[Rfam]
RNA sequence: AUCGCGCUUAGUUAGGAGGCUUAUAUCGAAUAUGUUCCUGUCUCUAGAUUAAAACGUGAAUCUUCAUCGAUUAACUUUUUAUUUUGGAUCUGGAACUACUGAGACCUCUUGAGGAGUUCAUUUGUUUUACCAUCAAUUUUCUCCCAAGCAGUCUCAGAUAUUU
Number, nucleotide and partner (000 for none) at each position: 001a000002u000003c000004g021005c000006g000007c018008u017009u016010a000011g000012u000013u000014a000015g000016g009017a008018g007019g000020c000021u004022u000023a000024u000025a000026u000027c000028g000029a000030a000031u000032a000033u000034g090035u000036u088037c087038c086039u000040g000041u000042c000043u000044c000045u000046a000047g000048a000049u000050u000051a000052a000053a000054a000055c000056g000057u000058g000059a000060a000061u000062c000063u000064u000065c000066a000067u000068c000069g000070a000071u000072u000073a000074a000075c000076u000077u000078u000079u000080u000081a000082u000083u000084u000085u000086g038087g037088a036089u000090c034091u000092g000093g000094a000095a000096c000097u000098a000099c157100u156101g155102a154103g153104a152105c151106c000107u000108c148109u147110u146111g145112a000113g144114g143115a142116g141117u000118u000119c000120a137121u136122u000123u000124g000125u000126u000127u000128u000129a000130c000131c000132a000133u000134c000135a000136a121137u120138u000139u000140u000141c116142u115143c114144c113145c111146a110147a109148g108149c000150a000151g105152u104153c103154u102155c101156a100157g099158a000159u000160a000161u000162u000163u000
RNA: Small nucleolar RNA U19
Organism: Cynara cardunculus